RNA sequence: AACUGCCACUGGGGGAGCCUUUCAGAAAGGCUGAGACGCGCAUGGGCUGCGCGGACCCUUGGAACCUGAUCCGGAUCAUACCGGCGUAGGGAAGUGGGGCCCGCAGCUU
Numbered sequence: 001a002a003c004u005g006c007c008a009c010u011g012g013g014g015g016a017g018c019c020u021u022u023c024a025g026a027a028a029g030g031c032u033g034a035g036a037c038g039c040g041c042a043u044g045g046g047c048u049g050c051g052c053g054g055a056c057c058c059u060u061g062g063a064a065c066c067u068g069a070u071c072c073g074g075a076u077c078a079u080a081c082c083g084g085c086g087u088a089g090g091g092a093a094g095u096g097g098g099g100c101c102c103g104c105a106g107c108u109u
Base pairs, nucleotide, nucleotide: 006097007096008095009094010093011059012058013057014056017031018030019029020028021027038052039051040050041049042048065090066089067088068087071084072083073082074081
Dot-bracket structure: .....(((((((((..(((((.....)))))......(((((.....)))))...)))).....((((..((((......))))..))))..)))))............
Source information: The record is a 109-nucleotide RNA from Bhargavaea cecembensis, which matches "TPP riboswitch aptamer (THI element)" in Rfam. It scores 89 bits against the family's covariance model.